[Rfam]
RNA sequence: UGACCCACCUUGUCGAACAGGGCGGAUCAAGACGUGGUAAAUCAGCAUAAGUGCCUCGUCUAUAAAUAAACCUCGUGAAUUGCUGGGAACUCUUAAUAAGUGUAGUAACUUGUAAACCACAACGUAACUGGAAACGGUAAGCGUGAAGGUUAGAAAAUUAUAAGUUAUAUAAGACAAUCAGCAGCCAAGCUCCUACACUAAUGAUAUGGAGAAGGUUCAACGACCAUCGAAAGUACACCGAUUGUGGAAACGAGUAGAGUAGGGAUCAAGCGAUUCCGAAGCGCGAGGGCACUUGAAACAGUGUAAGAUAUGGUCUGAACUCUAAGGUGACUUAGAG
Numbered sequence: 001u002g003a004c005c006c007a008c009c010u011u012g013u014c015g016a017a018c019a020g021g022g023c024g025g026a027u028c029a030a031g032a033c034g035u036g037g038u039a040a041a042u043c044a045g046c047a048u049a050a051g052u053g054c055c056u057c058g059u060c061u062a063u064a065a066a067u068a069a070a071c072c073u074c075g076u077g078a079a080u081u082g083c084u085g086g087g088a089a090c091u092c093u094u095a096a097u098a099a100g101u102g103u104a105g106u107a108a109c110u111u112g113u114a115a116a117c118c119a120c121a122a123c124g125u126a127a128c129u130g131g132a133a134a135c136g137g138u139a140a141g142c143g144u145g146a147a148g149g150u151u152a153g154a155a156a157a158u159u160a161u162a163a164g165u166u167a168u169a170u171a172a173g174a175c176a177a178u179c180a181g182c183a184g185c186c187a188a189g190c191u192c193c194u195a196c197a198c199u200a201a202u203g204a205u206a207u208g209g210a211g212a213a214g215g216u217u218c219a220a221c222g223a224c225c226a227u228c229g230a231a232a233g234u235a236c237a238c239c240g241a242u243u244g245u246g247g248a249a250a251c252g253a254g255u256a257g258a259g260u261a262g263g264g265a266u267c268a269a270g271c272g273a274u275u276c277c278g279a280a281g282c283g284c285g286a287g288g289g290c291a292c293u294u295g296a297a298a299c300a301g302u303g304u305a306a307g308a309u310a311u312g313g314u315c316u317g318a319a320c321u322c323u324a325a326g327g328u329g330a331c332u333u334a335g336a337g
Stems, first nucleotide, its partner, number of pairs: 005025002008022006029061001071288004076283002081183006091174005184216002191209002220316001222315005291302003322335005
Rfam assigns this 337-nucleotide RNA sequence from Pontibacillus chungwhensis to the family "Group I catalytic intron". A reference for the family is Cech (1990), "Self-splicing of group I introns", Annu Rev Biochem. It scores 79 bits against the family's covariance model. Pairs were carried over by alignment from the consensus structure, which is taken from published work. The family has 12 seed sequences and 5,602 matches in Rfam 15.1. Group I catalytic introns are large self-splicing ribozymes. They catalyse their own excision from mRNA, tRNA and rRNA precursors in a wide range of organisms. The core secondary structure consists of 9 paired regions (P1-P9). These fold to essentially two domains - the P4-P6 domain (formed from the stacking of P5, P4, P6 and P6a helices) and the P3-P9 domain (formed from the P8, P3, P7 and P9 helices).